Background
mraW RNA: a 108-nucleotide RNA sequence from Amycolatopsis taiwanensis. It scores 71 bits against the family's covariance model. The family's consensus secondary structure is taken from published work.

RNA sequence: UGACGCGGAUGCCGUGAGGCCUCUGUCCGCUCAGUGGCCCUGGUGCACCUUCCCCGGCACCAGGUCCGCAGCGGGCGGGCGGGGACCUGACGGCAUCCGUGGCAGAGA
Numbered sequence: 001u002g003a004c005g006c007g008g009a010u011g012c013c014g015u016g017a018g019g020c021c022u023c024u025g026u027c028c029g030c031u032c033a034g035u036g037g038c039c040c041u042g043g044u045g046c047a048c049c050u051u052c053c054c055c056g057g058c059a060c061c062a063g064g065u066c067c068g069c070a071g072c073g074g075g076c077g078g079g080c081g082g083g084g085a086c087c088u089g090a091c092g093g094c095a096u097c098c099g100u101g102g103c104a105g106a107g108a
Base pairs, nucleotide, nucleotide: 010095011094012093013092014091015090018087019086021084022083023082024081025080026079027078028077029076030075031074032073034069035068036067037066039064040063041062042061043060044059045058046057